[Rfam]
RNA sequence: AAUAAGAGAAUAACAAAUAAGAUUUUUCCUCCUGAUUUUCAGCAUUUUCCUCCUGAAAAAUAAAUCAAAUCCAACUAAAAAUACUAAAAAUCAAGAGGAAAAAAAUUGAUUUGUCGUUCUCCUAUU
Dot-bracket structure: ((((.((((((.((((((.((.(((((.(((.(((((((.((..((((.............................))))..)).))))))).))).)))))..)).)))))).)))))).))))
Numbered sequence: 001a002a003u004a005a006g007a008g009a010a011u012a013a014c015a016a017a018u019a020a021g022a023u024u025u026u027u028c029c030u031c032c033u034g035a036u037u038u039u040c041a042g043c044a045u046u047u048u049c050c051u052c053c054u055g056a057a058a059a060a061u062a063a064a065u066c067a068a069a070u071c072c073a074a075c076u077a078a079a080a081a082u083a084c085u086a087a088a089a090a091u092c093a094a095g096a097g098g099a100a101a102a103a104a105a106u107u108g109a110u111u112u113g114u115c116g117u118u119c120u121c122c123u124a125u126u
Stems, first nucleotide, its partner, number of pairs: 001126004006121006013114006020107002023103005029097003033093007041085002045081004
The family of this 126-nucleotide RNA from Gossypium aridum is "MIR7504 microRNA precursor family". Gene Ontology terms of the family: RISC complex and miRNA-mediated post-transcriptional gene silencing. The match comes from Rfam's covariance-model search (101 bits). The base pairs follow the family's consensus structure, which was predicted with RNAalifold. The family has 8 seed sequences and 7,343 matches in Rfam 15.1. The source organism's lineage runs through Eukaryota, Spermatophyta, rosids, malvids and Gossypium.